[Rfam]
RNA sequence: UGGGGCUUGGGAACCUGCCCCUCUCUGAGCACAGGUCCUUGUCUGUGGGGUGGGUGCAAGGGCGGUUGCAUGGGAUGACCCA
Numbered sequence: 001u002g003g004g005g006c007u008u009g010g011g012a013a014c015c016u017g018c019c020c021c022u023c024u025c026u027g028a029g030c031a032c033a034g035g036u037c038c039u040u041g042u043c044u045g046u047g048g049g050g051u052g053g054g055u056g057c058a059a060g061g062g063c064g065g066u067u068g069c070a071u072g073g074g075a076u077g078a079c080c081c082a
Base pairs, nucleotide, nucleotide: 001082002081003080004079

Shown here is an 82-nucleotide sequence from Panthera leo, a member of the family "Z6 small nucleolar RNA". Gene Ontology terms of the family: RNA processing and nucleolus. The family's consensus secondary structure was predicted with PFOLD. On this family, see Galardi et al., Mol Cell Biol 2002: "Purified box C/D snoRNPs are able to reproduce site-specific 2'-O-methylation of target RNA in vitro". The match comes from Rfam's covariance-model search (37 bits). The family has 7 seed sequences and 212 matches in Rfam 15.1. By type it is a C/D-box small nucleolar RNA.